RNA sequence: GUUUACGGGGAUCGCCCUCCGUCAGCGCGUUGCGCCCACGGGGGCGCUACCG
Numbered sequence: 001g002u003u004u005a006c007g008g009g010g011a012u013c014g015c016c017c018u019c020c021g022u023c024a025g026c027g028c029g030u031u032g033c034g035c036c037c038a039c040g041g042g043g044g045c046g047c048u049a050c051c052g
Stems, first nucleotide, its partner, number of pairs: 016044007025035004

The family of this 52-nucleotide RNA from Loktanella sp. 3ANDIMAR09 is "ffh sRNA". A search with the family's covariance model found it, with a score of 64 bits. The family's RNA type in Rfam is small RNA. The family's consensus secondary structure is taken from published work. The organism belongs to Loktanella, within Bacteria.